RNA sequence: GUGUUUUCAUGGUAUUAGAUUUUAAGGUUAAUAAAUUGAUUGUGGUUGUCGUGAGACAACCCUUUCUUUUUUA
Numbered sequence: 001g002u003g004u005u006u007u008c009a010u011g012g013u014a015u016u017a018g019a020u021u022u023u024a025a026g027g028u029u030a031a032u033a034a035a036u037u038g039a040u041u042g043u044g045g046u047u048g049u050c051g052u053g054a055g056a057c058a059a060c061c062c063u064u065u066c067u068u069u070u071u072u073a
Stems, first nucleotide, its partner, number of pairs: 044061007
Background:
Shown here is a 73-nucleotide RNA from Microbacter margulisiae, a member of the family "Bacteroidetes FopS (family of paralogous sRNAs)". The family's RNA type in Rfam is small RNA. Its family is annotated with sRNA-mediated gene silencing in the Gene Ontology. Lineage of the source: Bacteria > Bacteroidota > Bacteroidia > Bacteroidales > Microbacter.